This 82-nucleotide RNA from Streptomyces avermitilis belongs to the Rfam family "Bacterial small signal recognition particle RNA". By type it is a non-coding RNA gene. Taxonomically the source falls in Streptomyces avermitilis (Bacteria, Bacillati, Actinomycetota, Streptomyces). Rfam's curators put it in the seed alignment.
[Rfam]
RNA sequence: CCCUCACGUGGCGCUAUCUGACUGAACUCCCCCAGGGCCGGAAGUCAGCAAGGGUAGGUUGGCUCUGGCGGGUGCGUGGGGG
Number, nucleotide and partner (000 for none) at each position: 001c082002c081003c080004u079005c078006a077007c076008g075009u072010g000011g000012c070013g069014c068015u067016a066017u000018c062019u061020g060021a059022c058023u057024g000025a000026a000027c000028u000029c054030c053031c052032c000033c000034a000035g000036g000037g046038c000039c044040g000041g000042a000043a000044g039045u000046c037047a000048g000049c000050a000051a000052g031053g030054g029055u000056a000057g023058g022059u021060u020061g019062g018063c000064u000065c000066u016067g015068g014069c013070g012071g000072g009073u000074g000075c008076g007077u006078g005079g004080g003081g002082g001